[Rfam]
RNA sequence: CUAGAGGCGGCGGUAGGAGGGUGAGAAUCCUCGCAGGUUCGAGUCGAACGUAGUGAGACAACGUCGGAGCCUGCGACGACGGCCCGAAGGGCGCAUGUAAUCCCUCCUUCCACUUUC
Numbered sequence: 001c002u003a004g005a006g007g008c009g010g011c012g013g014u015a016g017g018a019g020g021g022u023g024a025g026a027a028u029c030c031u032c033g034c035a036g037g038u039u040c041g042a043g044u045c046g047a048a049c050g051u052a053g054u055g056a057g058a059c060a061a062c063g064u065c066g067g068a069g070c071c072u073g074c075g076a077c078g079a080c081g082g083c084c085c086g087a088a089g090g091g092c093g094c095a096u097g098u099a100a101u102c103c104c105u106c107c108u109u110c111c112a113c114u115u116u117c
Stems, first nucleotide, its partner, number of pairs: 015108007022100001032093002038088004045055002062081005
The family of this 117-nucleotide RNA sequence from Thalassolituus maritimus is "RtT RNA". On this family, see Bosl and Kersten, Nucleic Acids Res 1991: "A novel RNA product of the tyrT operon of Escherichia coli". From the family's description: This family represents a bacterial cis-regulatory element known as RtT RNA. The exact function of RtT is unknown although it is thought that it may be involved in changing the cellular response in relation to amino acid starvation. Rfam classes the family as a cis-regulatory element. The organism belongs to Thalassolituus, within Bacteria. Rfam links the family to the GO term cellular response to amino acid starvation.